U4 spliceosomal RNA: a 131-nucleotide sequence from Phyllostomus discolor. By type it is a spliceosomal small nuclear RNA. A search with the family's covariance model found it, with a score of 51 bits. Rfam's curators write: U4 small nuclear RNA (U4 snRNA) is a component of the major U2-dependent spliceosome. The base pairs follow the family's consensus structure, which is taken from published work.

[Rfam]
Nucleotides: 131
Stems, first nucleotide, its partner, number of pairs: 020052001022050003026047003034042002078107003084100007120131004
Number, partner (000 for none) and nucleotide at each position: 001000a002000g003000c004000u005000u006000u007000g008000c009000a010000c011000a012000g013000u014000g015000g016000c017000a018000a019000u020052a021000c022050u023049g024048u025000a026047g027046u028045c029000a030000g031000u032000g033000a034042g035041g036000u037000u038000u039000a040000c041035c042034u043000g044000a045028g046027g047026c048024a049023c050022a051000a052020u053000u054000a055000u056000u057000g058000c059000u060000a061000a062000u063000a064000g065000a066000g067000u068000g069000g070000g071000a072000u073000u074000u075000u076000u077000c078107u079106u080105g081000u082000a083000a084100u085099a086098g087097u088096u089095c090094c091000g092000a093000u094090g095089g096088a097087a098086u099085u100084g101000c102000a103000c104000u105080u106079a107078a108000u109000g110000u111000u112000u113000a114000a115000g116000u117000u118000u119000u120131u121130u122129a123128u124000a125000u126000u127000u128123a129122u130121a131120a